The record is a 68-nucleotide RNA sequence from Vandammella animalimorsus, which matches "ilvH RNA" in Rfam. The base pairs follow the family's consensus structure, which is taken from published work. It is annotated as a cis-regulatory element. A search with the family's covariance model found it, with a score of 77 bits.
[Rfam]
RNA sequence: GAUGAGUCAAUUGCUUGCCAAGCCUGGCCAUUACCGUGGCCGGGGGAGGGCGGCGAAAAGAGGAGUUC
Numbered sequence: 001g002a003u004g005a006g007u008c009a010a011u012u013g014c015u016u017g018c019c020a021a022g023c024c025u026g027g028c029c030a031u032u033a034c035c036g037u038g039g040c041c042g043g044g045g046g047a048g049g050g051c052g053g054c055g056a057a058a059a060g061a062g063g064a065g066u067u068c
Stems, first nucleotide, its partner, number of pairs: 011056003015053005023044009